Rfam assigns this 95-nucleotide RNA from Solanum commersonii to the family "Small nucleolar RNA snoR109". The source organism's lineage runs through Eukaryota, Streptophyta, Mesangiospermae, asterids and Solanum. For this family Rfam cites "Experimental RNomics: identification of 140 candidates for small non-messenger RNAs in the plant Arabidopsis thaliana" (Marker et al., Curr Biol, 2002). Pairs were carried over by alignment from the consensus structure, which was predicted with WAR. A search with the family's covariance model found it, with a score of 63 bits. By type it is an H/ACA-box small nucleolar RNA.
RNA sequence: UGGCUGUAGCAAUACAAAUAGAUUAUUGUCUGAGAAGUUUACUGGCUGGUUGUUGUUCUUUGUUAGCAUAUCUGCUUACCGAACUUCUUACAUAU
Numbered sequence: 001u002g003g004c005u006g007u008a009g010c011a012a013u014a015c016a017a018a019u020a021g022a023u024u025a026u027u028g029u030c031u032g033a034g035a036a037g038u039u040u041a042c043u044g045g046c047u048g049g050u051u052g053u054u055g056u057u058c059u060u061u062g063u064u065a066g067c068a069u070a071u072c073u074g075c076u077u078a079c080c081g082a083a084c085u086u087c088u089u090a091c092a093u094a095u
Base pairs, nucleotide, nucleotide: 032089033088034087035086036085037084038083039082044076045075046074048072049071050070052067053066054065055064